[Rfam]
RNA sequence: GUGCCGCCCCAACGGCUUCCUGACGGGGCGGGUCAAGACGUUUAUCGGAGCA
Numbered sequence: 001g002u003g004c005c006g007c008c009c010c011a012a013c014g015g016c017u018u019c020c021u022g023a024c025g026g027g028g029c030g031g032g033u034c035a036a037g038a039c040g041u042u043u044a045u046c047g048g049a050g051c052a
Stems, first nucleotide, its partner, number of pairs: 004032002006029005013022002015051003019048002
The record is a 52-nucleotide RNA from Pseudooceanicola albus, which matches "SAM/SAH riboswitch aptamer" in Rfam. The match comes from Rfam's covariance-model search (48 bits). Lineage of the source: Bacteria > Pseudomonadati > Alphaproteobacteria > Paracoccaceae > Pseudooceanicola. On this family, see Weickhmann et al., Nucleic Acids Res 2019: "The structure of the SAM/SAH-binding riboswitch". The family's consensus secondary structure is taken from published work.